[Rfam]
RNA sequence: CCCAGCCCCCAUGACGGCCUGUCUUCAAACCAGCCUGCUGGUGAGGCAGACCUGAAAGCCUGGC
Numbered sequence: 001c002c003c004a005g006c007c008c009c010c011a012u013g014a015c016g017g018c019c020u021g022u023c024u025u026c027a028a029a030c031c032a033g034c035c036u037g038c039u040g041g042u043g044a045g046g047c048a049g050a051c052c053u054g055a056a057a058g059c060c061u062g063g064c
Stems, first nucleotide, its partner, number of pairs: 002063004016052002019049007031040003
RNA: Selenocysteine insertion sequence 1